[Rfam]
RNA sequence: UGAUCAGUCAGGCUGCUGGCUAUUUUCCAUGACUUAUCUAGUUCUGGAUAUAACCAAAGCUCAACUGUAUG
Numbered sequence: 001u002g003a004u005c006a007g008u009c010a011g012g013c014u015g016c017u018g019g020c021u022a023u024u025u026u027c028c029a030u031g032a033c034u035u036a037u038c039u040a041g042u043u044c045u046g047g048a049u050a051u052a053a054c055c056a057a058a059g060c061u062c063a064a065c066u067g068u069a070u071g
Stems, first nucleotide, its partner, number of pairs: 007065002011061004017056003021052003027041001029039001031037001
A member of the RNA family "mir-344 microRNA precursor family" from Rattus norvegicus, 71 nucleotides long. The family's consensus secondary structure was predicted with RNAalifold. For this family Rfam cites "Small RNA expression and strain specificity in the rat" (Linsen et al., BMC Genomics, 2010).